[Rfam]
RNA sequence: UUGCAUAUAUGUAGACCUUGCCUGACCCUUCAUGGUCAGCCAAGGGGGACAGUGUAUGCCAGAGUGAUGUGGAGUUCUGCCAGCUCUAACCAGCUGAAUCAGUGGCUGGAUGAAACACAGGGCUCCAACAUUC
Numbered sequence: 001u002u003g004c005a006u007a008u009a010u011g012u013a014g015a016c017c018u019u020g021c022c023u024g025a026c027c028c029u030u031c032a033u034g035g036u037c038a039g040c041c042a043a044g045g046g047g048g049a050c051a052g053u054g055u056a057u058g059c060c061a062g063a064g065u066g067a068u069g070u071g072g073a074g075u076u077c078u079g080c081c082a083g084c085u086c087u088a089a090c091c092a093g094c095u096g097a098a099u100c101a102g103u104g105g106c107u108g109g110a111u112g113a114a115a116c117a118c119a120g121g122g123c124u125c126c127a128a129c130a131u132u133c
Stems, first nucleotide, its partner, number of pairs: 003059006016045005022039003071126004076122001078119002090109005
RNA: Small nucleolar RNA SNORA58